The family of this 85-nucleotide RNA sequence from Salvia splendens is "mir-172 microRNA precursor family". The family has 11 seed sequences and 2,076 matches in Rfam 15.1.
RNA sequence: UCGUUUGCAAAUGCAGCGUUAUCAAGAUUCACAUUAAUUCCGCUUUAAGCAAUGAGAAUCUUGAUGAUGCUGCAUUAGCUAUCAC
Numbered sequence: 001u002c003g004u005u006u007g008c009a010a011a012u013g014c015a016g017c018g019u020u021a022u023c024a025a026g027a028u029u030c031a032c033a034u035u036a037a038u039u040c041c042g043c044u045u046u047a048a049g050c051a052a053u054g055a056g057a058a059u060c061u062u063g064a065u066g067a068u069g070c071u072g073c074a075u076u077a078g079c080u081a082u083c084a085c
Stems, first nucleotide, its partner, number of pairs: 010076021032054004

Rfam links the family to the GO terms RISC complex and miRNA-mediated post-transcriptional gene silencing.